[Rfam]
RNA: Mason-Pfizer monkey virus packaging signal
Organism: Octodon degus
RNA sequence: UGGCACCUGAUGUGGAGACUUGGCACGGAGGAUUUAACGAGGGAGCCGUUGGAGAGCACCAGCUACUAAGCAGAUAGUGAAAGUAAAUUCCGAGGCCAACGCUGUGUGAGUGCCUGCCACACCGCUCAAGCCAGGGUGAGUGAACGUCAACUCCCUUCCCCUUCCAGCAUGGGUCAAGCAUUAAGUGAGCAUGAACUGUUUGUGGAAAGCCUCAGUAAGGCACUCAAGACACGAGGGAUUAAGGUAAAAGAAAAGGAAUUAUUACAGUAUUUUAAGUUUAUUCAUGAGGUUUGCCCAU
Numbered sequence: 001u002g003g004c005a006c007c008u009g010a011u012g013u014g015g016a017g018a019c020u021u022g023g024c025a026c027g028g029a030g031g032a033u034u035u036a037a038c039g040a041g042g043g044a045g046c047c048g049u050u051g052g053a054g055a056g057c058a059c060c061a062g063c064u065a066c067u068a069a070g071c072a073g074a075u076a077g078u079g080a081a082a083g084u085a086a087a088u089u090c091c092g093a094g095g096c097c098a099a100c101g102c103u104g105u106g107u108g109a110g111u112g113c114c115u116g117c118c119a120c121a122c123c124g125c126u127c128a129a130g131c132c133a134g135g136g137u138g139a140g141u142g143a144a145c146g147u148c149a150a151c152u153c154c155c156u157u158c159c160c161c162u163u164c165c166a167g168c169a170u171g172g173g174u175c176a177a178g179c180a181u182u183a184a185g186u187g188a189g190c191a192u193g194a195a196c197u198g199u200u201u202g203u204g205g206a207a208a209g210c211c212u213c214a215g216u217a218a219g220g221c222a223c224u225c226a227a228g229a230c231a232c233g234a235g236g237g238a239u240u241a242a243g244g245u246a247a248a249a250g251a252a253a254a255g256g257a258a259u260u261a262u263u264a265c266a267g268u269a270u271u272u273u274a275a276g277u278u279u280a281u282u283c284a285u286g287a288g289g290u291u292u293g294c295c296c297a298u
Stems, first nucleotide, its partner, number of pairs: 006031003012026003036050004089136003094132002101125002105121004141176003145173001183224001185221002233273004238268002242260002245257001285297002288294001